[Rfam]
RNA: Nuclear RNase P
Nucleotides: 313
Base pairs, nucleotide, nucleotide: 001313002312003311004310005307006306007305010243011242012241013240014239015238019056020055021054022053032046033045034044035043036042066297067296068295069294070293076219077218078217079216086100087099088098089097090096101118102117103116104115105114106113119215120214121213122212123211124210125209138200139199140198244285245284246283247282248281249280250279
Number, partner (000 for none) and nucleotide at each position: 001313g002312g003311c004310g005307g006306g007305a008000a009000g010243c011242u012241c013240a014239g015238c016000g017000g018000u019056g020055g021054g022053g023000c024000c025000a026000c027000g028000c029000g030000c031000g032046g033045a034044g035043u036042g037000c038000g039000c040000g041000u042036c043035a044034c045033u046032c047000u048000c049000c050000c051000g052000g053022c054021c055020c056019c057000u058000g059000g060000g061000a062000a063000g064000g065000u066297c067296u068295g069294a070293g071000a072000c073000u074000c075000g076219g077218g078217c079216c080000a081000g082000c083000a084000g085000c086100g087099g088098c089097c090096c091000u092000a093000g094000c095000a096090g097089g098088g099087c100086c101118c102117u103116c104115c105114c106113c107000g108000c109000g110000c111000g112000c113106g114105g115104g116103g117102g118101g119215g120214u121213g122212a123211g124210u125209u126000c127000c128000c129000a130000g131000a132000g133000a134000g135000c136000g137000g138200g139199c140198c141000c142000c143000g144000g145000c146000g147000a148000g149000g150000g151000c152000c153000u154000u155000c156000g157000g158000g159000c160000a161000g162000g163000a164000g165000a166000g167000g168000c169000c170000g171000c172000g173000u174000g175000c176000g177000c178000g179000g180000c181000g182000g183000a184000u185000g186000c187000c188000c189000c190000c191000u192000c193000c194000c195000c196000g197000g198140g199139g200138c201000u202000u203000g204000g205000a206000a207000u208000a209125g210124a211123c212122u213121c214120a215119c216079g217078g218077c219076c220000g221000g222000c223000a224000c225000g226000g227000u228000g229000a230000g231000u232000u233000c234000a235000a236000u237000g238015g239014c240013u241012g242011g243010g244285c245284c246283g247282g248281g249280g250279c251000a252000c253000c254000c255000g256000a257000g258000c259000u260000g261000g262000c263000c264000g265000c266000a267000c268000c269000c270000g271000g272000c273000c274000g275000c276000g277000g278000g279250g280249c281248u282247c283246c284245g285244g286000a287000a288000c289000c290000c291000a292000a293070u294069u295068c296067a297066g298000a299000c300000u301000a302000c303000u304000c305007u306006c307005c308000c309000c310004c311003g312002c313001c